The family of this 94-nucleotide sequence from Polaromonas sp. A23 is "Glycine riboswitch aptamer".

RNA sequence: GAGCUUCAUUCAAGAGAGUGUUUGCGCCCCGGGCGCAGGCCGCCGAAGGCGCAAUCUCCCAUGAUCGCUCAGGCUCCCGUAUUGAAUGAAACAC
Numbered sequence: 001g002a003g004c005u006u007c008a009u010u011c012a013a014g015a016g017a018g019u020g021u022u023u024g025c026g027c028c029c030c031g032g033g034c035g036c037a038g039g040c041c042g043c044c045g046a047a048g049g050c051g052c053a054a055u056c057u058c059c060c061a062u063g064a065u066c067g068c069u070c071a072g073g074c075u076c077c078c079g080u081a082u083u084g085a086a087u088g089a090a091a092c093a094c
Stems, first nucleotide, its partner, number of pairs: 006089008020040006042074003045070002049068003
Overview:
The family has 44 seed sequences and 9,425 matches in Rfam 15.1. A search with the family's covariance model found it, with a score of 49 bits. Rfam links the family to the GO term glycine biosynthetic process.